[Rfam]
RNA sequence: CCAUGGAGGGAGCUGGGAUCAGUCCCAUGGAGGAAGCUGG
Dot-bracket structure: ((((((..................))))))..........
Shown here is a 40-nucleotide RNA sequence from Physeter macrocephalus, a member of the family "Prion pseudoknot". Pairs were carried over by alignment from the consensus structure, which is taken from published work. The family's RNA type in Rfam is cis-regulatory element. From the family's description: This family represents a predicted pseudoknot structure found in prion protein mRNA. It has been suggested that the family has a possible effect in prion protein translation. The literature on the family includes a 2001 paper in Nucleic Acids Res by Barrette et al., "Pseudoknots in prion protein mRNAs confirmed by comparative sequence analysis and pattern searching".